[Rfam]
RNA: FMN riboswitch aptamer (RFN element)
Organism: Halothermothrix orenii
RNA sequence: AAAUGCUAACGGGAUACGGUGAGAUUCCGAACCGGUGGUGAAAGUCCACAAGCCAUAUUUAUUAUGGUUGAUUUGGUGAAAUUCCAAAACCGACAGUAUAGUCUGGAAGGGAGUUAGCAUUG
Dot-bracket structure: ..((((((((......(((.......))).[[((((((.....[[))))..((.............))...(((((.......)))))]])).(((....]]))).......))))))))..